[Rfam]
RNA sequence: GCGAACGCGGCGCGGGCUGCCAUCGGGCGGCCUCACCUGCAGAGGGGAGACAGGCGGCGGCAACGGCGCCGCUCCCCUCGCCAGUGCUGAACCAAGCACGCCCUGGGUGGGGUGUCUAGCCUGGGGAAAUUCCCCGGACCUAAAGGCAGAGAGUGCCAGCUGGAUACAGCAAGUUCCCUGGCUGCGAGGCCGCCAUGCGGGCUAAGAUGGCCGCCGUGGGCUUCGGCUCACGACGGUCGGAGCUCCAAGGCCGAGCGGCUGGGCACCAUUCGUCGCAGCACAGUUAUGCAGCCGGCCCGUGCUUUCAGCGCGGGCGCAACACAACGGGGGUCACCUGCCGCGUUCG
Numbered sequence: 001g002c003g004a005a006c007g008c009g010g011c012g013c014g015g016g017c018u019g020c021c022a023u024c025g026g027g028c029g030g031c032c033u034c035a036c037c038u039g040c041a042g043a044g045g046g047g048a049g050a051c052a053g054g055c056g057g058c059g060g061c062a063a064c065g066g067c068g069c070c071g072c073u074c075c076c077c078u079c080g081c082c083a084g085u086g087c088u089g090a091a092c093c094a095a096g097c098a099c100g101c102c103c104u105g106g107g108u109g110g111g112g113u114g115u116c117u118a119g120c121c122u123g124g125g126g127a128a129a130u131u132c133c134c135c136g137g138a139c140c141u142a143a144a145g146g147c148a149g150a151g152a153g154u155g156c157c158a159g160c161u162g163g164a165u166a167c168a169g170c171a172a173g174u175u176c177c178c179u180g181g182c183u184g185c186g187a188g189g190c191c192g193c194c195a196u197g198c199g200g201g202c203u204a205a206g207a208u209g210g211c212c213g214c215c216g217u218g219g220g221c222u223u224c225g226g227c228u229c230a231c232g233a234c235g236g237u238c239g240g241a242g243c244u245c246c247a248a249g250g251c252c253g254a255g256c257g258g259c260u261g262g263g264c265a266c267c268a269u270u271c272g273u274c275g276c277a278g279c280a281c282a283g284u285u286a287u288g289c290a291g292c293c294g295g296c297c298c299g300u301g302c303u304u305u306c307a308g309c310g311c312g313g314g315c316g317c318a319a320c321a322c323a324a325c326g327g328g329g330g331u332c333a334c335c336u337g338c339c340g341c342g343u344u345c346g
Base pairs, nucleotide, nucleotide: 002346003345004344005343006342007341008340009339010338011337015293016292017291018290019289020288023124024123025122026121027120028119031112032111033110034109035108036107037106038105039104129331130330132329133328134327135326145157146156147155148154159170160169161168162167173264174263175262180260181259182258183257184256185255188252189251190250199245200244201243202242232238233237295315296314297313298312299311300310
Dot-bracket structure: .((((((((((...((((((..((((((..(((((((((................................................................)))))))))......))))))....[[.[[[[.........((((.....)))).((((....))))..(((....((((((..(((........((((.............................((...))...))))....)))..)))))).))).......................)))))).((((((.........))))))..........]]]]]].....))))))))))